Description:
Rfam assigns this 46-nucleotide RNA sequence from Desulfonema magnum to the family "Acido-Lenti-1 RNA".
[Rfam]
RNA sequence: CCCGACAAUGAAUUGCCAGGCUAUUUUCAGCCGUUCCUCCGGGACU
Numbered sequence: 001c002c003c004g005a006c007a008a009u010g011a012a013u014u015g016c017c018a019g020g021c022u023a024u025u026u027u028c029a030g031c032c033g034u035u036c037c038u039c040c041g042g043g044a045c046u
Stems, first nucleotide, its partner, number of pairs: 001020002004017001006015003033045005
It is annotated as a small RNA. Lineage of the source: Bacteria > Thermodesulfobacteriota > Desulfobacterales > Desulfococcaceae > Desulfonema. The base pairs follow the family's consensus structure, which is taken from published work.